[Rfam]
RNA: L31-Actinobacteria ribosomal protein leader
RNA sequence: CCGGUUCCGGUUCACACCACUGAAAAUCAGCGGUGACCCGGCGGCC
Number, nucleotide and partner (000 for none) at each position: 001c000002c000003g046004g045005u044006u000007c041008c040009g039010g038011u000012u000013c000014a000015c035016a034017c033018c032019a000020c030021u029022g028023a027024a000025a000026a000027u023028c022029a021030g020031c000032g018033g017034u016035g015036a000037c000038c010039c009040g008041g007042c000043g000044g005045c004046c003